Description
Small nucleolar RNA Z199: an 85-nucleotide RNA sequence from Zizania palustris. NCBI's taxonomy places the organism under Eukaryota, Magnoliopsida, commelinids, Poales, Zizania. The family has 17 seed sequences and 953 matches in Rfam 15.1. It scores 90 bits against the family's covariance model. The base pairs follow the family's consensus structure, which was predicted with PFOLD.

[Rfam]
RNA sequence: GGCUCAAGUGAUGAGGGAAAAACUGCAGCAAUAUGAUGGGAGUUUUGCUCCUGUGAUUCCUAAGUUUUAAGGUCUCUAAUGAACC
Dot-bracket structure: ((.(((...............................(((((.....)))))...........................)).)))